[Rfam]
RNA sequence: AUGGGUUGAUGACGUGAGAAUAAACUGCGUUAUCUAUCUGAAAUUUUCAAACUGGAGUUGAAGAAUACAUUAAGCUUGUUGAGAUCCAAU
Numbered sequence: 001a002u003g004g005g006u007u008g009a010u011g012a013c014g015u016g017a018g019a020a021u022a023a024a025c026u027g028c029g030u031u032a033u034c035u036a037u038c039u040g041a042a043a044u045u046u047u048c049a050a051a052c053u054g055g056a057g058u059u060g061a062a063g064a065a066u067a068c069a070u071u072a073a074g075c076u077u078g079u080u081g082a083g084a085u086c087c088a089a090u
Stems, first nucleotide, its partner, number of pairs: 002088005
Record summary: Shown here is a 90-nucleotide sequence from Olea europaea, a member of the family "Small nucleolar RNA snoR27". Clan: snR68 clan. On this family, see Brown et al., RNA 2001: "Multiple snoRNA gene clusters from Arabidopsis". Rfam 15.1 lists 649 matches to the family in 212 species. NCBI's taxonomy places the organism under Eukaryota, Streptophytina, asterids, Lamiales, Olea europaea.